[Rfam]
RNA sequence: GUUGAAUAAAGCCACAAUCGCUGUGAGGCGGUGUCGGAAAGCCAAGGGUCUCCUUCGAGAGAUAGCCGGGUUACCUAC
Numbered sequence: 001g002u003u004g005a006a007u008a009a010a011g012c013c014a015c016a017a018u019c020g021c022u023g024u025g026a027g028g029c030g031g032u033g034u035c036g037g038a039a040a041g042c043c044a045a046g047g048g049u050c051u052c053c054u055u056c057g058a059g060a061g062a063u064a065g066c067c068g069g070g071u072u073a074c075c076u077a078c
Base pairs, nucleotide, nucleotide: 012037013036017032018031019030020029021028022027040072041071042070043069046067047066048063049062050061051060052059
The family of this 78-nucleotide sequence from Candidatus Electrothrix aarhusensis is "c-di-GMP-I riboswitch aptamer". A search with the family's covariance model found it, with a score of 49 bits.